Purine riboswitch aptamer: a 101-nucleotide sequence from Candidatus Izimoplasma sp. HR1.
NCBI's taxonomy places the organism under Bacteria, Mycoplasmatota, Mollicutes, Candidatus Izemoplasmatales, Candidatus Izemoplasma.
The family's consensus secondary structure is taken from published work.
RNA sequence: UAUUAUUAAAAUAGUUGGUAUUAUAUAUGAUCGAAAAUAUGGUUCGAUUGUCUCUACCCUGUGCCGUAAACAACAGGACUAUGAUACUUAUACAAUAAAAA
Numbered sequence: 001u002a003u004u005a006u007u008a009a010a011a012u013a014g015u016u017g018g019u020a021u022u023a024u025a026u027a028u029g030a031u032c033g034a035a036a037a038u039a040u041g042g043u044u045c046g047a048u049u050g051u052c053u054c055u056a057c058c059c060u061g062u063g064c065c066g067u068a069a070a071c072a073a074c075a076g077g078a079c080u081a082u083g084a085u086a087c088u089u090a091u092a093c094a095a096u097a098a099a100a101a
Base pairs, nucleotide, nucleotide: 018087019086020085021084022083023082024081025080029049030048031047032046033045034044035043058077059076060075061074062073063071